[Rfam]
This 101-nucleotide RNA sequence from Tindallia californiensis belongs to the Rfam family "SAM riboswitch aptamer (S box leader)". The source organism's lineage runs through Bacteria, Bacillota, Peptostreptococcales, Tindalliaceae and Tindallia.
RNA sequence: CUCUUAUAAAGAGUGGCGGAGGGACUGGCCCGAUGAAGCCCGGCAACCGGCAUAUAAUGCACGGUGCCAAAUCCUGUAGGUGAACACCUAAGAGAUGAGAG
Numbered sequence: 001c002u003c004u005u006a007u008a009a010a011g012a013g014u015g016g017c018g019g020a021g022g023g024a025c026u027g028g029c030c031c032g033a034u035g036a037a038g039c040c041c042g043g044c045a046a047c048c049g050g051c052a053u054a055u056a057a058u059g060c061a062c063g064g065u066g067c068c069a070a071a072u073c074c075u076g077u078a079g080g081u082g083a084a085c086a087c088c089u090a091a092g093a094g095a096u097g098a099g100a101g
Stems, first nucleotide, its partner, number of pairs: 001101007013041001015040003021031003025076001027074002042068004047064002050060004072093001077090005